[Rfam]
RNA sequence: AAGAGUAGGCGCAGCGGUUGCGGAACAGUUCCAAGCAGCUGUUCUGAGGAAAGUCCGGACUCCCGAAAGACCAAACUUGCUGGGUAACGCCCAGUACGAGCGAUCGUGAGGAUAGUGCCACAGAAACAUACCGCCGAUGAAUGAGGAGCGAGGAGUGAGGAGUGAGGAGCGAGGUACAAAUUAAACCCUAGCCCCUAACCCCUAACUCCUAGCCCCUCUUACAGGUAAGGGUGCAAAGGUGCGGUAAGAGCGCACCAGCAGCGUCGAGAGGCGCUGGCUCGGUAAACCCCAGUUGGGAGCAAGGUCGGAGGAACUAUGGUUGGUCUUUUACCAGUUCCGCUAUUGGAGAACCGCUAGAGGCGUCUGGUAACAGGCGUCCCAGAUAGAUAACCGCACUUCACUCACAGCAAUGCUGACGAGUGAACAACAGAAUCCGGCUUAUGUCCUGCUCUUUCCC
Numbered sequence: 001a002a003g004a005g006u007a008g009g010c011g012c013a014g015c016g017g018u019u020g021c022g023g024a025a026c027a028g029u030u031c032c033a034a035g036c037a038g039c040u041g042u043u044c045u046g047a048g049g050a051a052a053g054u055c056c057g058g059a060c061u062c063c064c065g066a067a068a069g070a071c072c073a074a075a076c077u078u079g080c081u082g083g084g085u086a087a088c089g090c091c092c093a094g095u096a097c098g099a100g101c102g103a104u105c106g107u108g109a110g111g112a113u114a115g116u117g118c119c120a121c122a123g124a125a126a127c128a129u130a131c132c133g134c135c136g137a138u139g140a141a142u143g144a145g146g147a148g149c150g151a152g153g154a155g156u157g158a159g160g161a162g163u164g165a166g167g168a169g170c171g172a173g174g175u176a177c178a179a180a181u182u183a184a185a186c187c188c189u190a191g192c193c194c195c196u197a198a199c200c201c202c203u204a205a206c207u208c209c210u211a212g213c214c215c216c217u218c219u220u221a222c223a224g225g226u227a228a229g230g231g232u233g234c235a236a237a238g239g240u241g242c243g244g245u246a247a248g249a250g251c252g253c254a255c256c257a258g259c260a261g262c263g264u265c266g267a268g269a270g271g272c273g274c275u276g277g278c279u280c281g282g283u284a285a286a287c288c289c290c291a292g293u294u295g296g297g298a299g300c301a302a303g304g305u306c307g308g309a310g311g312a313a314c315u316a317u318g319g320u321u322g323g324u325c326u327u328u329u330a331c332c333a334g335u336u337c338c339g340c341u342a343u344u345g346g347a348g349a350a351c352c353g354c355u356a357g358a359g360g361c362g363u364c365u366g367g368u369a370a371c372a373g374g375c376g377u378c379c380c381a382g383a384u385a386g387a388u389a390a391c392c393g394c395a396c397u398u399c400a401c402u403c404a405c406a407g408c409a410a411u412g413c414u415g416a417c418g419a420g421u422g423a424a425c426a427a428c429a430g431a432a433u434c435c436g437g438c439u440u441a442u443g444u445c446c447u448g449c450u451c452u453u454u455c456c457c
Base pairs, nucleotide, nucleotide: 001453002452003451004450005449006448007447008446009445011442014394015393016392017391018390019389021046022045023044024043025042026041027040028039029038051440052439053438055437056436057435058434059433060299061298062297063296069329070328074294075293076292078291079290080094081093082092083091084090095109096107097106098105099104110289111288115287116286117283118282119281131230132229133226134225135224138221139220140219238256239255240254241253242252243251258278259276260275261274262273263272264271265270303352304351305350310343312341314339320334321333322332323331324330359378360377361376362375363374364373365372366371
The record is a 457-nucleotide sequence from Gloeocapsa sp. PCC 7428, which matches "Bacterial RNase P class A" in Rfam. Pairs were carried over by alignment from the consensus structure, which is taken from published work. It scores 245 bits against the family's covariance model. Lineage of the source: Bacteria > Bacillati > Cyanobacteriota > Cyanophyceae > Gloeocapsa. About the family: Ribonuclease P (RNase P) is a ubiquitous endoribonuclease, found in archaea, bacteria and eukarya as well as chloroplasts and mitochondria.